RNA sequence: AAAGUGUCAAGAAUUGGUAACUCCACCACCGUUGGCGGAUAUUCACAGUCAAUGGGGUAAGAGUUUCCAUUUCUUGAUGCUGU
Number, nucleotide and partner (000 for none) at each position: 001a000002a000003a081004g080005u079006g078007u077008c076009a075010a074011g073012a072013a000014u000015u000016g068017g067018u000019a065020a064021c063022u062023c061024c000025a000026c000027c057028a000029c055030c054031g053032u052033u051034g050035g049036c048037g000038g000039a000040u000041a000042u000043u000044c000045a000046c000047a000048g036049u035050c034051a033052a032053u031054g030055g029056g000057g027058u000059a000060a000061g023062a022063g021064u020065u019066u000067c017068c016069a000070u000071u000072u012073c011074u010075u009076g008077a007078u006079g005080c004081u003082g000083u000
This 83-nucleotide sequence from Microctonus aethiopoides belongs to the Rfam family "mir-2765 microRNA precursor family". The family's consensus secondary structure was predicted with RNAalifold.